[Rfam]
RNA: mir-393 microRNA precursor family
Organism: Sesamum indicum
RNA sequence: AAAGGAUGAAUCCAAAGGGAUAGCAUGAUCCACAACCAUUCAUAUUAUUGAAUUGAUGAUGAUGAGUUUGGGGAUCAAUGCGAUCCCUUUGGACUCCUCCUU
Numbered sequence: 001a002a003a004g005g006a007u008g009a010a011u012c013c014a015a016a017g018g019g020a021u022a023g024c025a026u027g028a029u030c031c032a033c034a035a036c037c038a039u040u041c042a043u044a045u046u047a048u049u050g051a052a053u054u055g056a057u058g059a060u061g062a063u064g065a066g067u068u069u070g071g072g073g074a075u076c077a078a079u080g081c082g083a084u085c086c087c088u089u090u091g092g093a094c095u096c097c098u099c100c101u102u
Stems, first nucleotide, its partner, number of pairs: 002102005008096002011093011023081003026077006035069001